[Rfam]
RNA sequence: UAUACAUGGGGAUUGAAAGGGGAAUCCCCUUUUCCGCAGUAAGGAGGGUGCUCAGGAUGCAUUAAUUGAUGCAAGGCAUCCGUCGAAGGGAAC
Numbered sequence: 001u002a003u004a005c006a007u008g009g010g011g012a013u014u015g016a017a018a019g020g021g022g023a024a025u026c027c028c029c030u031u032u033u034c035c036g037c038a039g040u041a042a043g044g045a046g047g048g049u050g051c052u053c054a055g056g057a058u059g060c061a062u063u064a065a066u067u068g069a070u071g072c073a074a075g076g077c078a079u080c081c082g083u084c085g086a087a088g089g090g091a092a093c
Stems, first nucleotide, its partner, number of pairs: 015034008055081005